[Rfam]
RNA: Streptomyces RNA 6925
Organism: Streptomyces coelicolor
RNA sequence: GCAGUGUUGCCACGUUGAUGCGCCCGUCGGAAGGACUCAGCGUGGUGAUGGCGGGCAGUCGCCGCCCUUGCCGGGGCGGUCAUGCCGCUUAGCCUUCGGCGUCCGGGAGUUACCGCUCUCGGGCGCCGUCG
Numbered sequence: 001g002c003a004g005u006g007u008u009g010c011c012a013c014g015u016u017g018a019u020g021c022g023c024c025c026g027u028c029g030g031a032a033g034g035a036c037u038c039a040g041c042g043u044g045g046u047g048a049u050g051g052c053g054g055g056c057a058g059u060c061g062c063c064g065c066c067c068u069u070g071c072c073g074g075g076g077c078g079g080u081c082a083u084g085c086c087g088c089u090u091a092g093c094c095u096u097c098g099g100c101g102u103c104c105g106g107g108a109g110u111u112a113c114c115g116c117u118c119u120c121g122g123g124c125g126c127c128g129u130c131g
Base pairs, nucleotide, nucleotide: 001093002092006049007048010045011044012043013042014041015040016039017038018037023034024033051088052087053086054085056084057083061080062079063078064077065076066075067074068073097128098127099126100125101124102123103122104121105120106119107118108117109116110115